U4 spliceosomal RNA: a 160-nucleotide RNA from Molossus molossus. The family is grouped with related families in Rfam's "U4 clan". Taxonomically the source falls in Molossus (Eukaryota, Deuterostomia, Vertebrata, Teleostomi). By type it is a spliceosomal small nuclear RNA.
RNA sequence: AGCUUUGCGCAGUGGCAGUAUCGUAGCCAAUGAGGUUUAUCCGAGGCGCGAUUUUUGCUAAUUGAAAGCUUUUUAAAGCUUAAUAGCUUGGGUUGUAGGUAUGACAGAAGCACUGUAUAUGUAUAUUAUCUGAAGUCAAAAUAAGAUUUUUUUCUAAAGA
Dot-bracket structure: ...................(((((.(((.....((.....))..))))))))...................................(((..((.((((((.........................)))))).)).)))...........(((....)))
Numbered sequence: 001a002g003c004u005u006u007g008c009g010c011a012g013u014g015g016c017a018g019u020a021u022c023g024u025a026g027c028c029a030a031u032g033a034g035g036u037u038u039a040u041c042c043g044a045g046g047c048g049c050g051a052u053u054u055u056u057g058c059u060a061a062u063u064g065a066a067a068g069c070u071u072u073u074u075a076a077a078g079c080u081u082a083a084u085a086g087c088u089u090g091g092g093u094u095g096u097a098g099g100u101a102u103g104a105c106a107g108a109a110g111c112a113c114u115g116u117a118u119a120u121g122u123a124u125a126u127u128a129u130c131u132g133a134a135g136u137c138a139a140a141a142u143a144a145g146a147u148u149u150u151u152u153u154c155u156a157a158a159g160a
Stems, first nucleotide, its partner, number of pairs: 020052005026047003034042002088139003093135002096132006151160003